[Rfam]
RNA: TPP riboswitch aptamer (THI element)
Organism: Iocasia frigidifontis
Nucleotides: 090
Base pairs, nucleotide, nucleotide: 006078007077009075010074011041012040013039014038016035017027018026019025046071047070048069049068052065053064054063055062
Number, partner (000 for none) and nucleotide at each position: 001000a002000u003000a004000g005000a006078u007077u008000u009075c010074u011041a012040g013039g014038g015000g016035u017027g018026c019025c020000c021000u022000u023000g024000a025019g026018g027017c028000u029000g030000a031000g032000a033000u034000u035016a036000u037000a038014c039013c040012c041011u042000u043000a044000u045000a046071c047070c048069u049068g050000a051000u052065c053064c054063a055062g056000u057000u058000a059000a060000u061000a062055c063054u064053g065052g066000c067000g068049u069048a070047g071046g072000g073000a074010a075009g076000u077007a078006a079000u080000a081000a082000u083000a084000u085000g086000g087000u088000u089000u090000g